[Rfam]
RNA sequence: CCUGUCCGGGAUCGCCCCCCCGUCAGCGAGGUUUCGCCCACGGGGGCAAAUCGC
Numbered sequence: 001c002c003u004g005u006c007c008g009g010g011a012u013c014g015c016c017c018c019c020c021c022g023u024c025a026g027c028g029a030g031g032u033u034u035c036g037c038c039c040a041c042g043g044g045g046g047c048a049a050a051u052c053g054c
Stems, first nucleotide, its partner, number of pairs: 017046007026037004

The family of this 54-nucleotide RNA sequence from Rhodovulum sp. BSW8 is "ffh sRNA". The base pairs follow the family's consensus structure, which is taken from published work. A search with the family's covariance model found it, with a score of 52 bits. By type it is a small RNA.